RNA: Small nucleolar RNA Z157/R69/R10
RNA sequence: GUUGAGGCUGUGAUGAUGCUAUAUGUGUUGUCUAGCGUUUCUGAUCCGGUUUAUCAACCGGAGUCUGAAGAUUAACCCUUGACUGUCUGAGCAUCAAA
Numbered sequence: 001g002u003u004g005a006g007g008c009u010g011u012g013a014u015g016a017u018g019c020u021a022u023a024u025g026u027g028u029u030g031u032c033u034a035g036c037g038u039u040u041c042u043g044a045u046c047c048g049g050u051u052u053a054u055c056a057a058c059c060g061g062a063g064u065c066u067g068a069a070g071a072u073u074a075a076c077c078c079u080u081g082a083c084u085g086u087c088u089g090a091g092c093a094u095c096a097a098a
Stems, first nucleotide, its partner, number of pairs: 002097004007092002038070004045062006